A member of the RNA family "SAM (S-adenosyl methionine) riboswitch aptamer" from Arthrobacter sp. MYb227, 130 nucleotides long. The literature on the family includes a 2008 paper in RNA by Weinberg et al., "The aptamer core of SAM-IV riboswitches mimics the ligand-binding site of SAM-I riboswitches". Lineage of the source: Bacteria > Bacillati > Actinomycetes > Micrococcales > Arthrobacter. The family is grouped with related families in Rfam's "SAM clan".
RNA sequence: CUUCACGAAUUCUGACUGCCGCAAGGCAAGGCUCCGACCAGUCAGGUACCAACCCCAUAGUUGCACGGUGGGUGGUUCGGAUGACGAAGCGGCCUAUUGGACGAUUCUGUUCGGUGGGCAAGGACAACGC
Numbered sequence: 001c002u003u004c005a006c007g008a009a010u011u012c013u014g015a016c017u018g019c020c021g022c023a024a025g026g027c028a029a030g031g032c033u034c035c036g037a038c039c040a041g042u043c044a045g046g047u048a049c050c051a052a053c054c055c056c057a058u059a060g061u062u063g064c065a066c067g068g069u070g071g072g073u074g075g076u077u078c079g080g081a082u083g084a085c086g087a088a089g090c091g092g093c094c095u096a097u098u099g100g101a102c103g104a105u106u107c108u109g110u111u112c113g114g115u116g117g118g119c120a121a122g123g124a125c126a127a128c129g130c
Stems, first nucleotide, its partner, number of pairs: 001089004009047001011046006030039002048076003053072003058065001092119012